[Rfam]
RNA: skipping-rope RNA
RNA sequence: AAGCCUUGAGGACGGAACGGGCCGCCGUCGCCCCCAAUUUAGGGUUAGGAGAUGCAGGAAUGUCACCCUGCCAAGGUUG
Dot-bracket structure: .(((((((..(((((....[[[..))))).((((.......)))....)....(((((...]]]..)))))))))))).
Numbered sequence: 001a002a003g004c005c006u007u008g009a010g011g012a013c014g015g016a017a018c019g020g021g022c023c024g025c026c027g028u029c030g031c032c033c034c035c036a037a038u039u040u041a042g043g044g045u046u047a048g049g050a051g052a053u054g055c056a057g058g059a060a061u062g063u064c065a066c067c068c069u070g071c072c073a074a075g076g077u078u079g
Stems, first nucleotide, its partner, number of pairs: 002078007011029005020064003031049001032044003054071005